Description: The record is a 114-nucleotide sequence from Mytilus edulis, which matches "Potassium channel RNA editing signal" in Rfam. Pairs were carried over by alignment from the consensus structure, which is taken from published work. Rfam links the family to the GO term adenosine to inosine editing. This family represents a group of sequences related to the human potassium channel Kv1.1 hairpin element which directs the efficient modification of an adenosine to inosine by an adenosine deaminase acting on RNA (ADAR). The family has 85 seed sequences and 14,095 matches in Rfam 15.1.
RNA sequence: GUUGGUUAUGGAGAUCAUUACCCGAAAUCAGUACUUGGAAAAUGUGUUGGAGCAUGCUGUGCCGUUUGUGGAGUUAUAAUAAUUGCAAUGCCUAUUGCCAUCAUUGCGACAAAU
Numbered sequence: 001g002u003u004g005g006u007u008a009u010g011g012a013g014a015u016c017a018u019u020a021c022c023c024g025a026a027a028u029c030a031g032u033a034c035u036u037g038g039a040a041a042a043u044g045u046g047u048u049g050g051a052g053c054a055u056g057c058u059g060u061g062c063c064g065u066u067u068g069u070g071g072a073g074u075u076a077u078a079a080u081a082a083u084u085g086c087a088a089u090g091c092c093u094a095u096u097g098c099c100a101u102c103a104u105u106g107c108g109a110c111a112a113a114u
Stems, first nucleotide, its partner, number of pairs: 001114002005110001007108001009106003013102003018097001020095001037077001039075002049063002